[Rfam]
RNA sequence: AACUUAUCAAGAGAGGUGGAGGGAACAGGCCCUUUGAGACCCGGCAACCAGUACAUAACUUGUAUAUUGGUGCUAAAUCCUGCAGCAGAAGCUGAAAGAUGAGAA
Numbered sequence: 001a002a003c004u005u006a007u008c009a010a011g012a013g014a015g016g017u018g019g020a021g022g023g024a025a026c027a028g029g030c031c032c033u034u035u036g037a038g039a040c041c042c043g044g045c046a047a048c049c050a051g052u053a054c055a056u057a058a059c060u061u062g063u064a065u066a067u068u069g070g071u072g073c074u075a076a077a078u079c080c081u082g083c084a085g086c087a088g089a090a091g092c093u094g095a096a097a098g099a100u101g102a103g104a105a
Stems, first nucleotide, its partner, number of pairs: 003103006013042001015041003021032003026082004043074004048070002051065003078097001083094004
A member of the RNA family "SAM riboswitch aptamer (S box leader)" from Clostridium luticellarii, 105 nucleotides long. Pairs were carried over by alignment from the consensus structure, which is taken from published work. Lineage of the source: Bacteria > Clostridia > Eubacteriales > Clostridiaceae > Clostridium.